mir-216 microRNA precursor family: a 71-nucleotide sequence from Oryzias latipes. Rfam links the family to the GO terms RISC complex and miRNA-mediated post-transcriptional gene silencing. Taxonomically the source falls in Oryzias (Eukaryota, Euteleostomi, Osteoglossocephalai, Oryziinae). It scores 54 bits against the family's covariance model. The family is grouped with related families in Rfam's "mir-216 clan". A reference for the family is Lim et al. (2003), "Vertebrate microRNA genes", Science.
RNA sequence: AUCCAGUCAAAUCUCAGCUGGCAACUGUGAGUUUGGAGCACCUCACAGCGCUAGCUGAGGUUCGCCUGAAU
Numbered sequence: 001a002u003c004c005a006g007u008c009a010a011a012u013c014u015c016a017g018c019u020g021g022c023a024a025c026u027g028u029g030a031g032u033u034u035g036g037a038g039c040a041c042c043u044c045a046c047a048g049c050g051c052u053a054g055c056u057g058a059g060g061u062u063c064g065c066c067u068g069a070a071u
Base pairs, nucleotide, nucleotide: 004068005067006066010062011061012060013059014058015057016056017055021052026047027046028045029044030043031042